[Rfam]
Source information:
Shown here is a 111-nucleotide sequence from Nitrospirillum viridazoti, a member of the family "Manganese Mn2+ riboswitch aptamer (yybP-ykoY)". This RNA was originally discovered in E. coli during a large scale screen and was named SraF. The family was later found to exist upstream of related families of protein genes in many bacteria, including the the yybP and ykoK genes in B. subtilis. The pairing is the family consensus, mapped onto this sequence.

RNA sequence: CCGCCCAUCAUUGGGGAGUAGCCGCCCGCCGAUUUUGAGCGGGCGCCGCGUCAACAGACUUGGGCCCCGCCGGUGCUUCACCGGUGCGGCCCAUGGCGCGUGCGACCGAUC
Numbered sequence: 001c002c003g004c005c006c007a008u009c010a011u012u013g014g015g016g017a018g019u020a021g022c023c024g025c026c027c028g029c030c031g032a033u034u035u036u037g038a039g040c041g042g043g044c045g046c047c048g049c050g051u052c053a054a055c056a057g058a059c060u061u062g063g064g065c066c067c068c069g070c071c072g073g074u075g076c077u078u079c080a081c082c083g084g085u086g087c088g089g090c091c092c093a094u095g096g097c098g099c100g101u102g103c104g105a106c107c108g109a110u111c
Stems, first nucleotide, its partner, number of pairs: 026042003043103003047100007061093005